[Rfam]
RNA sequence: UGAGAGUUCAAGGCCAUAGCAGAAGUGCUCAUGAUGCAAACCUGUCAGAUUUCAAUGAAUCUGCAAUUUUUGCU
Numbered sequence: 001u002g003a004g005a006g007u008u009c010a011a012g013g014c015c016a017u018a019g020c021a022g023a024a025g026u027g028c029u030c031a032u033g034a035u036g037c038a039a040a041c042c043u044g045u046c047a048g049a050u051u052u053c054a055a056u057g058a059a060u061c062u063g064c065a066a067u068u069u070u071u072g073c074u
Stems, first nucleotide, its partner, number of pairs: 012042002018074007025037003046063007
Mammalian CPEB3 ribozyme: a 74-nucleotide sequence from Alligator mississippiensis.